[Rfam]
RNA sequence: CGCAUCAAGGAGCGUUGCGAUAGGUCGUCGAAGCUAUAGACCUACCAGGCUUGAUGCAGUCAAUACCAGCAACUGCGCUCACGUUUC
Numbered sequence: 001c002g003c004a005u006c007a008a009g010g011a012g013c014g015u016u017g018c019g020a021u022a023g024g025u026c027g028u029c030g031a032a033g034c035u036a037u038a039g040a041c042c043u044a045c046c047a048g049g050c051u052u053g054a055u056g057c058a059g060u061c062a063a064u065a066c067c068a069g070c071a072a073c074u075g076c077g078c079u080c081a082c083g084u085u086u087c
Base pairs, nucleotide, nucleotide: 002057003056004055005054006053007052008051021044022043023042024041025040026039
A member of the RNA family "SAH (S-adenosyl-L-homocysteine) riboswitch aptamer" from Herminiimonas fonticola, 87 nucleotides long. Its family is annotated with S-adenosylhomocysteine metabolic process and regulation of gene expression in the Gene Ontology. The organism belongs to Herminiimonas, within Bacteria.